[Rfam]
RNA sequence: AGGGCCGGCAUGCCUAAUCCCGGGCGAAGCGCCCGGGAGCCGGGGAACCACCGCACCUGGGGUGAACCACGUUCCGUGGAAGGGCGUCCUCCCGCCCGAACCCGUCAGCUAACCCGGUCGGCCGAAGGAGAGGAGAG
Numbered sequence: 001a002g003g004g005c006c007g008g009c010a011u012g013c014c015u016a017a018u019c020c021c022g023g024g025c026g027a028a029g030c031g032c033c034c035g036g037g038a039g040c041c042g043g044g045g046a047a048c049c050a051c052c053g054c055a056c057c058u059g060g061g062g063u064g065a066a067c068c069a070c071g072u073u074c075c076g077u078g079g080a081a082g083g084g085c086g087u088c089c090u091c092c093c094g095c096c097c098g099a100a101c102c103c104g105u106c107a108g109c110u111a112a113c114c115c116g117g118u119c120g121g122c123c124g125a126a127g128g129a130g131a132g133g134a135g136a137g
Stems, first nucleotide, its partner, number of pairs: 012122003018038009039118006049059002060103003067079004082097004
The family of this 137-nucleotide RNA sequence from Planomonospora parontospora is "c-di-AMP riboswitch aptamer (ydaO/yuaA leader)".
A search with the family's covariance model found it, with a score of 72 bits.